[Rfam]
RNA: Small nucleolar RNA SNORD45
Organism: Microtus ochrogaster
RNA sequence: GGUCAACAAUGUGUUGGCAUGUAUUAUCUGAAUUUUGCUGAUGUGUAAUAACACUUUAGCUCUAGAAUUACGCUGAGACCCU
Numbered sequence: 001g002g003u004c005a006a007c008a009a010u011g012u013g014u015u016g017g018c019a020u021g022u023a024u025u026a027u028c029u030g031a032a033u034u035u036u037g038c039u040g041a042u043g044u045g046u047a048a049u050a051a052c053a054c055u056u057u058a059g060c061u062c063u064a065g066a067a068u069u070a071c072g073c074u075g076a077g078a079c080c081c082u
Stems, first nucleotide, its partner, number of pairs: 001080004